[Rfam]
Description: Rfam assigns this 121-nucleotide RNA from Streptomyces sp. RKND-216 to the family "Streptomyces-metH RNA". The match comes from Rfam's covariance-model search (92 bits). The source organism's lineage runs through Bacteria, Bacillati, Actinomycetota, Kitasatosporales and Streptomyces. The base pairs follow the family's consensus structure, which is taken from published work. Rfam classes the family as a small RNA.
RNA sequence: CCGUCCCGCUCCGCGGAACGCCCGGGAGAGCCUUGCCGACGACGGCUACCCUGGUCUGGUGCGCCGUCCCCACGGGUGGUGCAAAGCCGACAGCCGUCGCAUCCCAGGGAGCAGUUUCAUG
Numbered sequence: 001c002c003g004u005c006c007c008g009c010u011c012c013g014c015g016g017a018a019c020g021c022c023c024g025g026g027a028g029a030g031c032c033u034u035g036c037c038g039a040c041g042a043c044g045g046c047u048a049c050c051c052u053g054g055u056c057u058g059g060u061g062c063g064c065c066g067u068c069c070c071c072a073c074g075g076g077u078g079g080u081g082c083a084a085a086g087c088c089g090a091c092a093g094c095c096g097u098c099g100c101a102u103c104c105c106a107g108g109g110a111g112c113a114g115u116u117u118c119a120u121g
Stems, first nucleotide, its partner, number of pairs: 060083004065078004086100002089098003